Rfam assigns this 59-nucleotide sequence from Lentivirus humimdef1 to the family "Trans-activation response element (TAR)". Rfam links the family to the GO terms miRNA-mediated post-transcriptional gene silencing and RISC complex. Rfam's curators write: This family represents the HIV trans-activation response (TAR) element which is known to be required for the trans-activation of the viral promoter and for virus replication. The TAR hairpin acts as a binding site for the Tat protein and this interaction stimulates the activity of the long terminal repeat promoter. The literature on the family includes a 2003 paper in J Biol Chem by Kulinski et al., "The apical loop of the HIV-1 TAR RNA hairpin is stabilized by a cross-loop base pair". A search with the family's covariance model found it, with a score of 68 bits.
RNA sequence: GGGUCUCUCUUGUUAGACCAGAUUGAGCCUGGGAGCUCUCUGGCUUACUAGAGAACCAU
Numbered sequence: 001g002g003g004u005c006u007c008u009c010u011u012g013u014u015a016g017a018c019c020a021g022a023u024u025g026a027g028c029c030u031g032g033g034a035g036c037u038c039u040c041u042g043g044c045u046u047a048c049u050a051g052a053g054a055a056c057c058a059u
Stems, first nucleotide, its partner, number of pairs: 002057003006054005012048002015045002018043005025038004